[Rfam]
RNA sequence: GCAACCUCAAGCUCGCGCACGGCAACGUGGUCGUGUUCCGUUCGCUGCUGGGCAUCAGCUGGAUGUGGUUCUUCGGCGCGGUGUUCCUGGCCAACUUCCCGGCCUUCGCGCGCGACACGCUG
Numbered sequence: 001g002c003a004a005c006c007u008c009a010a011g012c013u014c015g016c017g018c019a020c021g022g023c024a025a026c027g028u029g030g031u032c033g034u035g036u037u038c039c040g041u042u043c044g045c046u047g048c049u050g051g052g053c054a055u056c057a058g059c060u061g062g063a064u065g066u067g068g069u070u071c072u073u074c075g076g077c078g079c080g081g082u083g084u085u086c087c088u089g090g091c092c093a094a095c096u097u098c099c100c101g102g103c104c105u106u107c108g109c110g111c112g113c114g115a116c117a118c119g120c121u122g
Stems, first nucleotide, its partner, number of pairs: 010049003014044002017041002021037004026033001051121003055117001060112002063105001065103001067099002072094001075091001077089002080087002

Burkholderia RNA 11: a 122-nucleotide RNA from Hydrogenophaga sp. H7. Its family is annotated with protein binding in the Gene Ontology. Pairs were carried over by alignment from the consensus structure, which was predicted with RNAfold. Lineage of the source: Bacteria > Pseudomonadati > Betaproteobacteria > Comamonadaceae > Hydrogenophaga. From the family's description: Co-purified with Hfq, expression confirmed by Northern blot. Predicted target marZ. Overlaps coding sequence.